[Rfam]
RNA sequence: CGCCGCGCCCGCUGCGCGGAGUCUUUUUUCCACUGCAACAAGGGGUCUGCCCGUG
Numbered sequence: 001c002g003c004c005g006c007g008c009c010c011g012c013u014g015c016g017c018g019g020a021g022u023c024u025u026u027u028u029u030c031c032a033c034u035g036c037a038a039c040a041a042g043g044g045g046u047c048u049g050c051c052c053g054u055g
Base pairs, nucleotide, nucleotide: 001021003019004018005017006016007015008014
ClpQY promoter: a 55-nucleotide RNA sequence from a Plautia stali symbiont. For this family Rfam cites "Regulation of clpQ(+)Y(+) (hslV(+)U(+)) gene expression in Escherichia coli" (Lien et al., Open Microbiol J, 2009).